The record is a 36-nucleotide RNA sequence, which matches "DUF805b RNA" in Rfam. The base pairs follow the family's consensus structure, which is taken from published work. Rfam classes the family as a cis-regulatory element.

[Rfam]
RNA sequence: UCAGGGGAAACCGAAAACCUGUUAACAGAGUAGGCU
Numbered sequence: 001u002c003a004g005g006g007g008a009a010a011c012c013g014a015a016a017a018c019c020u021g022u023u024a025a026c027a028g029a030g031u032a033g034g035c036u
Stems, first nucleotide, its partner, number of pairs: 002021004011034002